Shown here is a 108-nucleotide sequence from Lachnoclostridium sp. An76, a member of the family "TPP riboswitch aptamer (THI element)".

[Rfam]
RNA sequence: AUUGAUGACAAGGGGAGCUUGUAUGACAGGCUGAGAGGAAGUUGAUAACUUCGACCCAUAACCUGAUCUGGAUAAUGCCAGCGGAGGGAUAUGUUAUGAGCGCGCGUU
Numbered sequence: 001a002u003u004g005a006u007g008a009c010a011a012g013g014g015g016a017g018c019u020u021g022u023a024u025g026a027c028a029g030g031c032u033g034a035g036a037g038g039a040a041g042u043u044g045a046u047a048a049c050u051u052c053g054a055c056c057c058a059u060a061a062c063c064u065g066a067u068c069u070g071g072a073u074a075a076u077g078c079c080a081g082c083g084g085a086g087g088g089a090u091a092u093g094u095u096a097u098g099a100g101c102g103c104g105c106g107u108u
Stems, first nucleotide, its partner, number of pairs: 006096005012057003017031005038052005062087003068081004
Dot-bracket structure: .....(((((.(((..(((((.....)))))......(((((.....)))))..)))....(((...((((......))))...)))....)))))............

The organism belongs to Lachnoclostridium, within Bacteria. Rfam's curators write: Vitamin B(1) in its active form thiamin pyrophosphate (TPP) is an essential coenzyme that is synthesised by coupling of pyrimidine and thiazole moieties in bacteria.